[Rfam]
RNA sequence: UUAGCAGAUGAUGAUAAAACAGACAGGGACAUCAGAACUCCUUUAAUGGUGUAAAUGAUGACUUAGUCUAAUGGGAAUCUCUCAGAUGCUAU
Numbered sequence: 001u002u003a004g005c006a007g008a009u010g011a012u013g014a015u016a017a018a019a020c021a022g023a024c025a026g027g028g029a030c031a032u033c034a035g036a037a038c039u040c041c042u043u044u045a046a047u048g049g050u051g052u053a054a055a056u057g058a059u060g061a062c063u064u065a066g067u068c069u070a071a072u073g074g075g076a077a078u079c080u081c082u083c084a085g086a087u088g089c090u091a092u
Stems, first nucleotide, its partner, number of pairs: 002091005